[Rfam]
RNA sequence: CGUCUCGACGACGAGGAUCUCGUCUCCUAUAUCCUGGCUGGCCUUGACGUCGACUUCAACCCGGAGGUCACCGCAGUCGCGUCCAGGGUCGAGCCGGUGUCCGUGGGUGAACUGUUUGCUCAGCUCGUGAGCUUUGAAA
Numbered sequence: 001c002g003u004c005u006c007g008a009c010g011a012c013g014a015g016g017a018u019c020u021c022g023u024c025u026c027c028u029a030u031a032u033c034c035u036g037g038c039u040g041g042c043c044u045u046g047a048c049g050u051c052g053a054c055u056u057c058a059a060c061c062c063g064g065a066g067g068u069c070a071c072c073g074c075a076g077u078c079g080c081g082u083c084c085a086g087g088g089u090c091g092a093g094c095c096g097g098u099g100u101c102c103g104u105g106g107g108u109g110a111a112c113u114g115u116u117u118g119c120u121c122a123g124c125u126c127g128u129g130a131g132c133u134u135u136g137a138a139a
Stems, first nucleotide, its partner, number of pairs: 005137004088108003092104001
This 139-nucleotide RNA sequence from Leersia perrieri belongs to the Rfam family "Small nucleolar RNA Z247".
The match comes from Rfam's covariance-model search (62 bits).
Pairs were carried over by alignment from the consensus structure, which was predicted with PFOLD.
The organism belongs to Leersia, within Eukaryota.